[Rfam]
RNA sequence: UAGAUUUUUGGGAAUGAAGUUCUCCCAUGACUAUUGUCUAAACUGCUUAUUACAGCUGAUGACUUCUGCGAUUUU
Dot-bracket structure: .........[[[[..((((((.]]]]..................(((......)))....)))))).........